[Rfam]
RNA: ZMP/ZTP riboswitch aptamer (pfl RNA motif)
RNA sequence: UGACACGGUCGCAACUGGCGUUGAGAUGGGUUUCCAUCGGGGAGCGAUUAACGGAUCGGAUGUGGCCGAACGCCUGGGCCAUAACG
Numbered sequence: 001u002g003a004c005a006c007g008g009u010c011g012c013a014a015c016u017g018g019c020g021u022u023g024a025g026a027u028g029g030g031u032u033u034c035c036a037u038c039g040g041g042g043a044g045c046g047a048u049u050a051a052c053g054g055a056u057c058g059g060a061u062g063u064g065g066c067c068g069a070a071c072g073c074c075u076g077g078g079c080c081a082u083a084a085c086g
Base pairs, nucleotide, nucleotide: 007049008048009047010046011045012044015041016040017074018073019072020071021070026037027036028035029034063081064080065079066078067077